[Rfam]
RNA sequence: GGGUUUGAUGAUGACAUUGCAUUUGGGCUGAAAGGAGUUUAUGUCUUAAAAAACAGGCUCAAUAGGAUUAUGCUGAGGCCC
Dot-bracket structure: ((((.((.((............................................................)).))..))))
RNA: Small nucleolar RNA SNORD115
Organism: Heterocephalus glaber